Description: This 131-nucleotide sequence from Chrysochloris asiatica belongs to the Rfam family "Small nucleolar RNA SNORA69". About the family: U69 is a member of the H/ACA class of small nucleolar RNAs (snoRNAs) which act as guides in the the modification of uridines to pseudouridines. Gene Ontology terms of the family: nucleolus and RNA processing. Lineage of the source: Eukaryota > Bilateria > Deuterostomia > Afrotheria > Chrysochloris. The match comes from Rfam's covariance-model search (110 bits). It is annotated as an H/ACA-box small nucleolar RNA.
RNA sequence: AAAGCAGGUUACAAUUCCAGUCCUUCAGUUUGUGGCAGUACUGACAUUAUCCUGCUGAAAGAAAAGCUGCGGUGAUGGUCUUUGGUUUUGCUUUAUGAGGGCAAAAUCAUGACCGAUUAACAUGCACAACU
Numbered sequence: 001a002a003a004g005c006a007g008g009u010u011a012c013a014a015u016u017c018c019a020g021u022c023c024u025u026c027a028g029u030u031u032g033u034g035g036c037a038g039u040a041c042u043g044a045c046a047u048u049a050u051c052c053u054g055c056u057g058a059a060a061g062a063a064a065a066g067c068u069g070c071g072g073u074g075a076u077g078g079u080c081u082u083u084g085g086u087u088u089u090g091c092u093u094u095a096u097g098a099g100g101g102c103a104a105a106a107u108c109a110u111g112a113c114c115g116a117u118u119a120a121c122a123u124g125c126a127c128a129a130c131u
Stems, first nucleotide, its partner, number of pairs: 003056006018043004023038002026035001068124002071121001073119004083109012